[Rfam]
RNA: Xanthomonas sRNA sX9
Organism: Xanthomonas campestris
RNA sequence: AUGUACCCCCGGACACUCCAGUUACGCCACGCUGUCCGCACCCACCUGACGACUGCUCGCUAUGUUUUGUUAGCA
Numbered sequence: 001a002u003g004u005a006c007c008c009c010c011g012g013a014c015a016c017u018c019c020a021g022u023u024a025c026g027c028c029a030c031g032c033u034g035u036c037c038g039c040a041c042c043c044a045c046c047u048g049a050c051g052a053c054u055g056c057u058c059g060c061u062a063u064g065u066u067u068u069g070u071u072a073g074c075a
Stems, first nucleotide, its partner, number of pairs: 002015003006011001019034004046073007
Dot-bracket structure: .(((.(....).)))...((((........))))...........(((((((..............)))))))..